[Rfam]
RNA sequence: ACUAUUACCCUAACUUUAGUAUUGACUUGAUUGUUGAAUUCAGUAAGUGCUACUUGUUGGGGCAGUUGAA
Numbered sequence: 001a002c003u004a005u006u007a008c009c010c011u012a013a014c015u016u017u018a019g020u021a022u023u024g025a026c027u028u029g030a031u032u033g034u035u036g037a038a039u040u041c042a043g044u045a046a047g048u049g050c051u052a053c054u055u056g057u058u059g060g061g062g063c064a065g066u067u068g069a070a
Stems, first nucleotide, its partner, number of pairs: 004066003008062004013057002018051006025044003
RNA: miR-430 microRNA precursor family
Organism: Etheostoma spectabile